[Rfam]
RNA sequence: CCCCUCGCAAUCCGCGGCGUGGCGGCUUAUAUCCCUCCUGCUCACCUUCGGGUGGCUAUGGCGAUAAACGGCAUGUGGAAUAAGCGUUGCGGACCCGGGGGCAGUGCCCGGCGUCUCCACCAGCUUCAGGCACCUGGGAUCGUCGGGUGUGCUUCUGGGGACGAAACAGGCUCGACGCGCGUGGUAAAGCCAUGUCUUUUGCCCGGCAUUGUACCGCCGUUAUCGGGCUAUAUCACAAGUGCCAACGAUAACAGCCGCGAGGCUGUGGCGCUCGCUGCCUAACAAUAGGUAAGCGCGGUCCGGGGGGAACCGGGCAACAGAAUCCCCCCACC
Numbered sequence: 001c002c003c004c005u006c007g008c009a010a011u012c013c014g015c016g017g018c019g020u021g022g023c024g025g026c027u028u029a030u031a032u033c034c035c036u037c038c039u040g041c042u043c044a045c046c047u048u049c050g051g052g053u054g055g056c057u058a059u060g061g062c063g064a065u066a067a068a069c070g071g072c073a074u075g076u077g078g079a080a081u082a083a084g085c086g087u088u089g090c091g092g093a094c095c096c097g098g099g100g101g102c103a104g105u106g107c108c109c110g111g112c113g114u115c116u117c118c119a120c121c122a123g124c125u126u127c128a129g130g131c132a133c134c135u136g137g138g139a140u141c142g143u144c145g146g147g148u149g150u151g152c153u154u155c156u157g158g159g160g161a162c163g164a165a166a167c168a169g170g171c172u173c174g175a176c177g178c179g180c181g182u183g184g185u186a187a188a189g190c191c192a193u194g195u196c197u198u199u200u201g202c203c204c205g206g207c208a209u210u211g212u213a214c215c216g217c218c219g220u221u222a223u224c225g226g227g228c229u230a231u232a233u234c235a236c237a238a239g240u241g242c243c244a245a246c247g248a249u250a251a252c253a254g255c256c257g258c259g260a261g262g263c264u265g266u267g268g269c270g271c272u273c274g275c276u277g278c279c280u281a282a283c284a285a286u287a288g289g290u291a292a293g294c295g296c297g298g299u300c301c302g303g304g305g306g307g308a309a310c311c312g313g314g315c316a317a318c319a320g321a322a323u324c325c326c327c328c329c330a331c332c
Stems, first nucleotide, its partner, number of pairs: 040056002043054003060203005070196006085181003089178003095111005112163007204219004209230001211228001214226002296312004302329006